Source information
A member of the RNA family "Metazoan signal recognition particle RNA" from Vombatus ursinus, 301 nucleotides long. The family is grouped with related families in Rfam's "SRP clan". By type it is a non-coding RNA gene. Rfam describes the family as follows. The signal recognition particle (SRP) is a universally conserved ribonucleoprotein. It is involved in the co-translational targeting of proteins to membranes. The eukaryotic SRP consists of a 300-nucleotide 7S RNA and six proteins: SRPs 72, 68, 54, 19, 14, and 9. Taxonomically the source falls in Vombatus (Eukaryota, Eumetazoa, Craniata, Dipnotetrapodomorpha). Gene Ontology terms of the family: signal recognition particle, endoplasmic reticulum targeting and SRP-dependent cotranslational protein targeting to membrane, signal sequence recognition.
RNA sequence: GCUAGGCAUGUUAGCACACGCCUGUGGUCCUCACUUCCAGGGAGGCAAGACUGGAGGUUCUCUUGUGCUCAGGAAUUCUGAGCUGCCCUGGGCCAUGCUGAUUGAGUGUCCCCUCUGAGUUUGGCAUUAAUUUGGUGAGUCCCUGGGAUUAGGGGGCCAUCAGAUUGUCUGAGUAAGGAGUGAGCUGGCCCUGGUUGGAAAAUAAUUGGGUCAGAGCUCCUGUGCCUAUCAGUAGUAAGAUUGGGCCUGUGAGUCUCCUUUGCACUUCCAACCUGGGCAAGAUAGGGAGACCUAGUAUUUU
Numbered sequence: 001g002c003u004a005g006g007c008a009u010g011u012u013a014g015c016a017c018a019c020g021c022c023u024g025u026g027g028u029c030c031u032c033a034c035u036u037c038c039a040g041g042g043a044g045g046c047a048a049g050a051c052u053g054g055a056g057g058u059u060c061u062c063u064u065g066u067g068c069u070c071a072g073g074a075a076u077u078c079u080g081a082g083c084u085g086c087c088c089u090g091g092g093c094c095a096u097g098c099u100g101a102u103u104g105a106g107u108g109u110c111c112c113c114u115c116u117g118a119g120u121u122u123g124g125c126a127u128u129a130a131u132u133u134g135g136u137g138a139g140u141c142c143c144u145g146g147g148a149u150u151a152g153g154g155g156g157c158c159a160u161c162a163g164a165u166u167g168u169c170u171g172a173g174u175a176a177g178g179a180g181u182g183a184g185c186u187g188g189c190c191c192u193g194g195u196u197g198g199a200a201a202a203u204a205a206u207u208g209g210g211u212c213a214g215a216g217c218u219c220c221u222g223u224g225c226c227u228a229u230c231a232g233u234a235g236u237a238a239g240a241u242u243g244g245g246c247c248u249g250u251g252a253g254u255c256u257c258c259u260u261u262g263c264a265c266u267u268c269c270a271a272c273c274u275g276g277g278c279a280a281g282a283u284a285g286g287g288a289g290a291c292c293u294a295g296u297a298u299u300u301u
Stems, first nucleotide, its partner, number of pairs: 001046003004023004009018003028043003047299002050296005058289006066279008079270001080268003084264003090258001092257001095254002098251001103249002106246002109243001110239001115235003119230001121228001123226005128167010140155006168175001169173001176221006186213005195204001